[Rfam]
RNA: poplar-1 RNA
RNA sequence: UUGAAGCCGAGGGGCUCUGCGGAAACGACAGAUCUGCGCCGAUCCGAAACGCUAGCAAACAGCCCGCAUCAUGUCGUCUCCUAACUUCGACGUGGUGAAAUACUGAGCUUAUGCGAGUAAGCCUGUUAGCAGUAGCAAA
Numbered sequence: 001u002u003g004a005a006g007c008c009g010a011g012g013g014g015c016u017c018u019g020c021g022g023a024a025a026c027g028a029c030a031g032a033u034c035u036g037c038g039c040c041g042a043u044c045c046g047a048a049a050c051g052c053u054a055g056c057a058a059a060c061a062g063c064c065c066g067c068a069u070c071a072u073g074u075c076g077u078c079u080c081c082u083a084a085c086u087u088c089g090a091c092g093u094g095g096u097g098a099a100a101u102a103c104u105g106a107g108c109u110u111a112u113g114c115g116a117g118u119a120a121g122c123c124u125g126u127u128a129g130c131a132g133u134a135g136c137a138a139a
Stems, first nucleotide, its partner, number of pairs: 012065004018057003031044004067097002070094005082128004101134004107122005